[Rfam]
RNA sequence: CCACGCAGCCGGGGAGAUAGCGGUGCCCUGUACCUGCAAUCCGCUCCAGCAGGGGUGAUACCUUGCCUCGGGCAACCCGUUGCGGAGCUGCCUUGUGUAAGUGGCGUUGACGUUUGGGUCUUACGCAACGGGAAUCUGUGAACCGUGUCAGGGCAGGAAUGCAGCAGCACUAAGCGGAACCUCCCGUGUGCCGUGAGGCAGCCUGGACCGAGUUAACUGCAUGAGUAACGUCCGUGGCGAUUGCACAAAGCAAGGUGCGUGG
Numbered sequence: 001c002c003a004c005g006c007a008g009c010c011g012g013g014g015a016g017a018u019a020g021c022g023g024u025g026c027c028c029u030g031u032a033c034c035u036g037c038a039a040u041c042c043g044c045u046c047c048a049g050c051a052g053g054g055g056u057g058a059u060a061c062c063u064u065g066c067c068u069c070g071g072g073c074a075a076c077c078c079g080u081u082g083c084g085g086a087g088c089u090g091c092c093u094u095g096u097g098u099a100a101g102u103g104g105c106g107u108u109g110a111c112g113u114u115u116g117g118g119u120c121u122u123a124c125g126c127a128a129c130g131g132g133a134a135u136c137u138g139u140g141a142a143c144c145g146u147g148u149c150a151g152g153g154c155a156g157g158a159a160u161g162c163a164g165c166a167g168c169a170c171u172a173a174g175c176g177g178a179a180c181c182u183c184c185c186g187u188g189u190g191c192c193g194u195g196a197g198g199c200a201g202c203c204u205g206g207a208c209c210g211a212g213u214u215a216a217c218u219g220c221a222u223g224a225g226u227a228a229c230g231u232c233c234g235u236g237g238c239g240a241u242u243g244c245a246c247a248a249a250g251c252a253a254g255g256u257g258c259g260u261g262g
Stems, first nucleotide, its partner, number of pairs: 001262007008056003011029004016024001018022001033053005061255006070246001072244003078239009089227002093224006101217002103214003112208008120197006126188002129186005135178005145170004153162003

A member of the RNA family "Bacterial large signal recognition particle RNA" from Clostridium sp. FS41, 262 nucleotides long. The literature on the family includes a 2009 paper in RNA Biol by Rosenblad et al., "Kinship in the SRP RNA family". It scores 190 bits against the family's covariance model. NCBI's taxonomy places the organism under Bacteria, Bacillota, Clostridia, Eubacteriales, Clostridium.